Description
RNA anti-toxin A: an 82-nucleotide RNA from Streptococcus hyointestinalis. Rfam links the family to the GO terms negative regulation of translation and mRNA binding. By type it is an antitoxin RNA. Rfam 15.1 lists 190 matches to the family in 120 species.
[Rfam]
RNA sequence: UAAUAGAAGUAGAAAAGGAGUUGAGCAGCAACUCAACUCCAUGUAGAACCGUUUAAGACGGUGACAAGUAGGGCAAGAAAUA
Numbered sequence: 001u002a003a004u005a006g007a008a009g010u011a012g013a014a015a016a017g018g019a020g021u022u023g024a025g026c027a028g029c030a031a032c033u034c035a036a037c038u039c040c041a042u043g044u045a046g047a048a049c050c051g052u053u054u055a056a057g058a059c060g061g062u063g064a065c066a067a068g069u070a071g072g073g074c075a076a077g078a079a080a081u082a
Stems, first nucleotide, its partner, number of pairs: 022035004048062006